[Rfam]
RNA sequence: CUUUGUAAUCUUCCACAGCUUUCUUGAACUGCAUGGUAAUCUAAUCUAAUUACAGAUAAAAUUAAGCUUGUUCUUCAAGUACAUGGUGCCAUGGUGGUAUAUCGCCUUUGCGGUUCAAUAAAGCUGUGGGAAACUACAGAUA
Numbered sequence: 001c002u003u004u005g006u007a008a009u010c011u012u013c014c015a016c017a018g019c020u021u022u023c024u025u026g027a028a029c030u031g032c033a034u035g036g037u038a039a040u041c042u043a044a045u046c047u048a049a050u051u052a053c054a055g056a057u058a059a060a061a062u063u064a065a066g067c068u069u070g071u072u073c074u075u076c077a078a079g080u081a082c083a084u085g086g087u088g089c090c091a092u093g094g095u096g097g098u099a100u101a102u103c104g105c106c107u108u109u110g111c112g113g114u115u116c117a118a119u120a121a122a123g124c125u126g127u128g129g130g131a132a133a134c135u136a137c138a139g140a141u142a
Stems, first nucleotide, its partner, number of pairs: 003139005013129003017125006024118004029113005
MIR396 microRNA precursor family: a 142-nucleotide RNA from Aquilegia coerulea. The family's consensus secondary structure was predicted with WAR. The organism belongs to Aquilegia, within Eukaryota.